RNA sequence: AGUAGUGUGACAUGCCCGUUUGGGAUUUAUUCUGAUGUAUGUUUAUUUAUUAUUAAAUUGUUUUUGGGUAACGGGGUGUUACAUACAC
Numbered sequence: 001a002g003u004a005g006u007g008u009g010a011c012a013u014g015c016c017c018g019u020u021u022g023g024g025a026u027u028u029a030u031u032c033u034g035a036u037g038u039a040u041g042u043u044u045a046u047u048u049a050u051u052a053u054u055a056a057a058u059u060g061u062u063u064u065u066g067g068g069u070a071a072c073g074g075g076g077u078g079u080u081a082c083a084u085a086c087a088c
Stems, first nucleotide, its partner, number of pairs: 002088002005084009015075006
A member of the RNA family "MIR2617 microRNA precursor family" from Medicago truncatula, 88 nucleotides long. Gene Ontology terms of the family: miRNA-mediated post-transcriptional gene silencing and RISC complex. NCBI's taxonomy places the organism under Eukaryota, Spermatophyta, Mesangiospermae, fabids, Medicago. It scores 59 bits against the family's covariance model.